[Rfam]
RNA sequence: GGCAGCCUGGGGAGAGCUGGGUCUCCUCAUGCACGUGUCCUGGUGCAGGCCUGCACCAGGACACGUGCAUGAGGAGACCCAGCUCUCCCCAGGCUGCC
Numbered sequence: 001g002g003c004a005g006c007c008u009g010g011g012g013a014g015a016g017c018u019g020g021g022u023c024u025c026c027u028c029a030u031g032c033a034c035g036u037g038u039c040c041u042g043g044u045g046c047a048g049g050c051c052u053g054c055a056c057c058a059g060g061a062c063a064c065g066u067g068c069a070u071g072a073g074g075a076g077a078c079c080c081a082g083c084u085c086u087c088c089c090c091a092g093g094c095u096g097c098c
Stems, first nucleotide, its partner, number of pairs: 002097002006093002009090013023076010034065002037062011

The record is a 98-nucleotide RNA sequence from Malurus cyaneus, which matches "mir-1684 microRNA precursor family" in Rfam. Its family is annotated with RISC complex and miRNA-mediated post-transcriptional gene silencing in the Gene Ontology.